[Rfam]
Nucleotides: 074
Base pairs, nucleotide, nucleotide: 003072004071005070006069007068009066010065011064013062014061017058018057019056020055021054024051025050026049027048028047029046
Number, partner (000 for none) and nucleotide at each position: 001000c002000c003072a004071g005070u006069g007068a008000a009066a010065g011064g012000a013062a014061a015000a016000g017058u018057u019056g020055u021054a022000u023000g024051u025050u026049u027048c028047c029046c030000a031000c032000u033000u034000u035000u036000g037000a038000u039000u040000u041000a042000a043000a044000g045000u046029g047028g048027g049026a050025a051024a052000c053000a054021u055020a056019c057018a058017a059000c060000u061014u062013u063000u064011c065010c066009u067000u068007u069006c070005a071004c072003u073000g074000g
Shown here is a 74-nucleotide RNA sequence from Callithrix jacchus, a member of the family "mir-965 microRNA precursor family". The literature on the family includes a 2012 paper in Bioorg Khim by Huang et al., "The regulation of silkworm fibroin L chain production by miRNA-965 and miRNA-1926 in insect cells". The source organism's lineage runs through Eukaryota, Deuterostomia, Euarchontoglires, Platyrrhini and Callithrix.